[Rfam]
Small nucleolar RNA R64/Z200 family: a 95-nucleotide RNA from Paspalum vaginatum. The family's consensus secondary structure was predicted with PFOLD.
RNA sequence: UAAUUGCGAUGACGAAUUAUGAAUAAACUUCGCAUGUCAGACUUCGGAGAUGCUUAUGGCAUCCAUGAGAAGAUAUUUCAUUCGACUGAGCAAUA
Number, nucleotide and partner (000 for none) at each position: 001u000002a000003a094004u093005u092006g091007c090008g000009a000010u000011g000012a000013c000014g000015a000016a000017u000018u000019a000020u000021g000022a000023a000024u000025a000026a000027a000028c000029u000030u000031c000032g000033c000034a000035u000036g000037u000038c000039a000040g000041a000042c000043u000044u000045c000046g000047g000048a000049g063050a062051u061052g060053c000054u000055u000056a000057u000058g000059g000060c052061a051062u050063c049064c000065a000066u000067g000068a000069g000070a000071a000072g000073a000074u000075a000076u000077u000078u000079c000080a000081u000082u000083c000084g000085a000086c000087u000088g000089a000090g007091c006092a005093a004094u003095a000

The match comes from Rfam's covariance-model search (85 bits). The source organism's lineage runs through Eukaryota, Viridiplantae, Embryophyta, Poaceae and Paspalum.